[Rfam]
Rfam assigns this 129-nucleotide RNA sequence from Myotis brandtii to the family "Small nucleolar RNA SNORA11". A reference for the family is Gu et al. (2005), "A novel experimental approach for systematic identification of box H/ACA snoRNAs from eukaryotes", Nucleic Acids Res. Rfam classes the family as an H/ACA-box small nucleolar RNA. Taxonomically the source falls in Myotis (Eukaryota, Eumetazoa, Dipnotetrapodomorpha, Tetrapoda).
RNA sequence: UGGGUGUGGAGAGAGCAGAGCGCCUGAAGAAUGGCUUCUCUGUGUAUAACACAUCCAACAGCAACUUGGGCUUACUCCUCACGGGUGGCAGAAUACGAUGGCCUUCCUGUGACAUUACGGCCUAUACAU
Numbered sequence: 001u002g003g004g005u006g007u008g009g010a011g012a013g014a015g016c017a018g019a020g021c022g023c024c025u026g027a028a029g030a031a032u033g034g035c036u037u038c039u040c041u042g043u044g045u046a047u048a049a050c051a052c053a054u055c056c057a058a059c060a061g062c063a064a065c066u067u068g069g070g071c072u073u074a075c076u077c078c079u080c081a082c083g084g085g086u087g088g089c090a091g092a093a094u095a096c097g098a099u100g101g102c103c104u105u106c107c108u109g110u111g112a113c114a115u116u117a118c119g120g121c122c123u124a125u126a127c128a129u
Base pairs, nucleotide, nucleotide: 002056003055004054005053006052007051008050013045015043016042017041018040019039020038022035023034024033069122070121071120072119076114080111081110083104084103085102087099089097